[Rfam]
RNA: Group II catalytic intron D1-D4-6
RNA sequence: GAAAUCUUAUCCAGUAAGGUGUAGCCGCACCACUGGUAGCGAGUUUUGGGGAUACAGAGGUAACGAUGUAUUCUAAGUGUAAACAGUUAGGAAAUAGGGCUGAAAGUGAUUGAGCUCCGAAAUCUACGUAACCCGUAGGUCGACGUUUUCUUUCGGGCGGAAGACAAUACGUAUGUUUCUGUUUGGGUUAGGAAGCAUAUGCUACGGCGGAGUCUGAGAGCC
Numbered sequence: 001g002a003a004a005u006c007u008u009a010u011c012c013a014g015u016a017a018g019g020u021g022u023a024g025c026c027g028c029a030c031c032a033c034u035g036g037u038a039g040c041g042a043g044u045u046u047u048g049g050g051g052a053u054a055c056a057g058a059g060g061u062a063a064c065g066a067u068g069u070a071u072u073c074u075a076a077g078u079g080u081a082a083a084c085a086g087u088u089a090g091g092a093a094a095u096a097g098g099g100c101u102g103a104a105a106g107u108g109a110u111u112g113a114g115c116u117c118c119g120a121a122a123u124c125u126a127c128g129u130a131a132c133c134c135g136u137a138g139g140u141c142g143a144c145g146u147u148u149u150c151u152u153u154c155g156g157g158c159g160g161a162a163g164a165c166a167a168u169a170c171g172u173a174u175g176u177u178u179c180u181g182u183u184u185g186g187g188u189u190a191g192g193a194a195g196c197a198u199a200u201g202c203u204a205c206g207g208c209g210g211a212g213u214c215u216g217a218g219a220g221c222c
Stems, first nucleotide, its partner, number of pairs: 011036004018031004022190003026187001039087002043084004047079002049074008059064001111216001112214001114213006133207006139165003144159004170201011